[Rfam]
RNA sequence: UGUGAUCAAAGAGAGUUUAUCCGGCCAGAUUCGGGUCUGUCAGGUUCUCCCCGGCGCAUCUUCGGGUAGCAGGUGUCUCCUCCCUCGCCUGUUGGCGGUGCGCCCCCCUUGCCUCGCUCCUCGACGCACGACGAGCGAGGCUUUUU
Numbered sequence: 001u002g003u004g005a006u007c008a009a010a011g012a013g014a015g016u017u018u019a020u021c022c023g024g025c026c027a028g029a030u031u032c033g034g035g036u037c038u039g040u041c042a043g044g045u046u047c048u049c050c051c052c053g054g055c056g057c058a059u060c061u062u063c064g065g066g067u068a069g070c071a072g073g074u075g076u077c078u079c080c081u082c083c084c085u086c087g088c089c090u091g092u093u094g095g096c097g098g099u100g101c102g103c104c105c106c107c108c109u110u111g112c113c114u115c116g117c118u119c120c121u122c123g124a125c126g127c128a129c130g131a132c133g134a135g136c137g138a139g140g141c142u143u144u145u146u
Stems, first nucleotide, its partner, number of pairs: 053104008069092007111141009121131002
The family of this 146-nucleotide sequence from Ciceribacter lividus is "Rhizobiales sRNA Atu_C7". The source organism's lineage runs through Bacteria, Pseudomonadota, Hyphomicrobiales, Rhizobiaceae and Ciceribacter. On this family, see Wilms et al., RNA Biol 2012: "Deep sequencing uncovers numerous small RNAs on all four replicons of the plant pathogen Agrobacterium tumefaciens".